[Rfam]
RNA sequence: GGCCUCCUGAUGCUUACCACAGGCUGUGUUCUUACACUCACUGUAUAGAAAAAGGAGGCAAAGUAAACCUAUCCCAUAUACACCUCAGUCCAGUCCGUAAGCCUGAUCUGUAUUGUGAAUGGGAAGACAUGG
Numbered sequence: 001g002g003c004c005u006c007c008u009g010a011u012g013c014u015u016a017c018c019a020c021a022g023g024c025u026g027u028g029u030u031c032u033u034a035c036a037c038u039c040a041c042u043g044u045a046u047a048g049a050a051a052a053a054g055g056a057g058g059c060a061a062a063g064u065a066a067a068c069c070u071a072u073c074c075c076a077u078a079u080a081c082a083c084c085u086c087a088g089u090c091c092a093g094u095c096c097g098u099a100a101g102c103c104u105g106a107u108c109u110g111u112a113u114u115g116u117g118a119a120u121g122g123g124a125a126g127a128c129a130u131g132g
Base pairs, nucleotide, nucleotide: 002059003058004057005056006055007054008053020043021042022041026037027036028035029034072124073123074122075121076120077119086110087109088108091105092104093103095101
Dot-bracket structure: .(((((((...........(((...((((....))))...))).........)))))))............((((((........(((..(((.(.....).)))..)))........))))))........
Shown here is a 132-nucleotide RNA sequence from Castor canadensis, a member of the family "Small nucleolar RNA SNORA51".
Rfam classes the family as an H/ACA-box small nucleolar RNA.
Rfam describes the family as follows. ACA51 is a member of the H/ACA class of snoRNA that guide the sites of modification of uridines to pseudouridines.
The source organism's lineage runs through Eukaryota, Metazoa, Tetrapoda, Mammalia and Castor.
It scores 139 bits against the family's covariance model.